[Rfam]
RNA sequence: UUAACAUUGGGAGUGCAGAGGGGAUUUCCCUCGCCGGUUUAGAGGGGGUGCUCAGGAUGCAUUGAUAGCUGUGGGCAUCCGUCGAAGGGGGA
Numbered sequence: 001u002u003a004a005c006a007u008u009g010g011g012a013g014u015g016c017a018g019a020g021g022g023g024a025u026u027u028c029c030c031u032c033g034c035c036g037g038u039u040u041a042g043a044g045g046g047g048g049u050g051c052u053c054a055g056g057a058u059g060c061a062u063u064g065a066u067a068g069c070u071g072u073g074g075g076c077a078u079c080c081g082u083c084g085a086a087g088g089g090g091g092a
Base pairs, nucleotide, nucleotide: 015034016033018032019031020030021029022028055080056079057078058077059076